Rfam assigns this 109-nucleotide RNA sequence from Methylobacterium durans to the family "SAM-I/IV (S-adenosyl methionine) riboswitch aptamer". Rfam 15.1 lists 567 matches to the family in 508 species. It scores 56 bits against the family's covariance model. Clan: SAM clan. For this family Rfam cites "The aptamer core of SAM-IV riboswitches mimics the ligand-binding site of SAM-I riboswitches" (Weinberg et al., RNA, 2008).

RNA sequence: UUGAAGCAUCGAGAUGAGGCUGGCGCCUCAACCAACCUGCCCUUCCGCGGCAAGGUGGUUCCGGAGAUCCGGGAUGCGGCCGAUCUGAUCGGCAACUAUAGCGGGAGUG
Numbered sequence: 001u002u003g004a005a006g007c008a009u010c011g012a013g014a015u016g017a018g019g020c021u022g023g024c025g026c027c028u029c030a031a032c033c034a035a036c037c038u039g040c041c042c043u044u045c046c047g048c049g050g051c052a053a054g055g056u057g058g059u060u061c062c063g064g065a066g067a068u069c070c071g072g073g074a075u076g077c078g079g080c081c082g083a084u085c086u087g088a089u090c091g092g093c094a095a096c097u098a099u100a101g102c103g104g105g106a107g108u109g
Base pairs, nucleotide, nucleotide: 006077007076008075009074010073015030016029017028018027019026020025031059032058033057036055037054038053039051040050041049043105044104045103079093080092081091082090083089084088